[Rfam]
RNA sequence: UUGGUUUAAAUAAUUGUAGUUCUACACUUUGAAAAUUGAAACUACACAAAAUGGUGGGACAUAUAUUGAUUUUAUCCAA
Numbered sequence: 001u002u003g004g005u006u007u008a009a010a011u012a013a014u015u016g017u018a019g020u021u022c023u024a025c026a027c028u029u030u031g032a033a034a035a036u037u038g039a040a041a042c043u044a045c046a047c048a049a050a051a052u053g054g055u056g057g058g059a060c061a062u063a064u065a066u067u068g069a070u071u072u073u074a075u076c077c078a079a
Stems, first nucleotide, its partner, number of pairs: 001079004006074001008072004013067001015065004022057003025053002028050004

This 79-nucleotide RNA from Medicago truncatula belongs to the Rfam family "MIR5269 microRNA precursor family". Its family is annotated with miRNA-mediated post-transcriptional gene silencing and RISC complex in the Gene Ontology. It scores 68 bits against the family's covariance model.